Rfam assigns this 54-nucleotide sequence from Cyprinus carpio to the family "UnaL2 LINE 3' element".
Lineage of the source: Eukaryota > Opisthokonta > Clupeocephala > Cyprinus > Cyprinus carpio.
Rfam describes the family as follows. The eel long interspersed element (LINE) UnaL2 and its partner short interspersed element (SINE) share a conserved 3' tail containing a stem-loop that is critical for their retrotransposition. Presumably, the first step of retrotransposition is the recognition of their 3' tails by UnaL2-encoded reverse transcriptase. The solution structure of a 17-nucleotide RNA derived from the 3' tail of UnaL2 was determined by NMR.
[Rfam]
RNA sequence: CCCUGAAUACACUGUAAGUCGCUUUGGAUAAAAGCGUCUGCUAAAUGCAUAAUU
Numbered sequence: 001c002c003c004u005g006a007a008u009a010c011a012c013u014g015u016a017a018g019u020c021g022c023u024u025u026g027g028a029u030a031a032a033a034g035c036g037u038c039u040g041c042u043a044a045a046u047g048c049a050u051a052a053u054u
Stems, first nucleotide, its partner, number of pairs: 013043001014041003020036006